[Rfam]
RNA sequence: GAUGAUUGAGGUCGGAAAUGGCUCCCGACACACUCGAAAGAGUACCUGAGAUGCAGGAUACGCCACCCUGCCAAUUAUC
Numbered sequence: 001g002a003u004g005a006u007u008g009a010g011g012u013c014g015g016a017a018a019u020g021g022c023u024c025c026c027g028a029c030a031c032a033c034u035c036g037a038a039a040g041a042g043u044a045c046c047u048g049a050g051a052u053g054c055a056g057g058a059u060a061c062g063c064c065a066c067c068c069u070g071c072c073a074a075u076u077a078u079c
Base pairs, nucleotide, nucleotide: 001079002078003077004076005075006074007073008072011029012028013027014026015025019065020064021063022062031048032043033042034041035040053071054070055069056068057067
The record is a 79-nucleotide sequence, which matches "skipping-rope RNA" in Rfam. It is one of the family's seed sequences. The family's RNA type in Rfam is small RNA.